This 103-nucleotide RNA from Neurospora crassa belongs to the Rfam family "Small nucleolar RNA Z13/snr52". It is one of the family's seed sequences. The base pairs follow the family's consensus structure, which was predicted with PFOLD.

RNA sequence: GCCCACACCCUGAUGAAAUAUUCUCGGAUGUAAAAUUUUACUUUUGUCUGAAAAGCGCAAAAACAAUGUUGAGAUUUCCGUUGCCUUCCUUCUGAUCUGUGGU
Numbered sequence: 001g002c003c004c005a006c007a008c009c010c011u012g013a014u015g016a017a018a019u020a021u022u023c024u025c026g027g028a029u030g031u032a033a034a035a036u037u038u039u040a041c042u043u044u045u046g047u048c049u050g051a052a053a054a055g056c057g058c059a060a061a062a063a064c065a066a067u068g069u070u071g072a073g074a075u076u077u078c079c080g081u082u083g084c085c086u087u088c089c090u091u092c093u094g095a096u097c098u099g100u101g102g103u
Stems, first nucleotide, its partner, number of pairs: 003102003025080004